[Rfam]
RNA sequence: AUGCGAUACGCUUUCAGCGUAUCUCCUCCCUGAACCUUGGCCACCGCGUGCUCGGCACGCGGUGGUUUUUUUGUAUUCC
Numbered sequence: 001a002u003g004c005g006a007u008a009c010g011c012u013u014u015c016a017g018c019g020u021a022u023c024u025c026c027u028c029c030c031u032g033a034a035c036c037u038u039g040g041c042c043a044c045c046g047c048g049u050g051c052u053c054g055g056c057a058c059g060c061g062g063u064g065g066u067u068u069u070u071u072u073g074u075a076u077u078c079c
Stems, first nucleotide, its partner, number of pairs: 008020004042064009
The record is a 79-nucleotide sequence from Sphingomonas sp. NFR15, which matches "Makes More Granules Regulator RNA (mmgR)" in Rfam. It is annotated as a small RNA. Its Rfam clan is "suhB sRNA clan". Gene Ontology terms of the family: protein binding, response to nitrogen compound and DNA-templated transcription, termination. Lineage of the source: Bacteria > Pseudomonadota > Sphingomonadales > Sphingomonadaceae > Sphingomonas.